[Rfam]
RNA sequence: GCAUGUUUGUGUGGAUGGUGUUCAGCACCAAGGACAGACAUGUUACGUGUGUGGAUGGUGUUCAGCGCUAAUAUAGGCGUAUUUCCCU
Numbered sequence: 001g002c003a004u005g006u007u008u009g010u011g012u013g014g015a016u017g018g019u020g021u022u023c024a025g026c027a028c029c030a031a032g033g034a035c036a037g038a039c040a041u042g043u044u045a046c047g048u049g050u051g052u053g054g055a056u057g058g059u060g061u062u063c064a065g066c067g068c069u070a071a072u073a074u075a076g077g078c079g080u081a082u083u084u085c086c087c088u
Base pairs, nucleotide, nucleotide: 004079005078006077007076008075009074016070017069018068019067020066021065022064024062025061026060027059028058029057030056032050034048035047
Overview
The family of this 88-nucleotide RNA from Branchiostoma floridae is "mir-2060 microRNA precursor family". The base pairs follow the family's consensus structure, which was predicted with RNAalifold. The family has 7 seed sequences and 3,696 matches in Rfam 15.1. It scores 56 bits against the family's covariance model.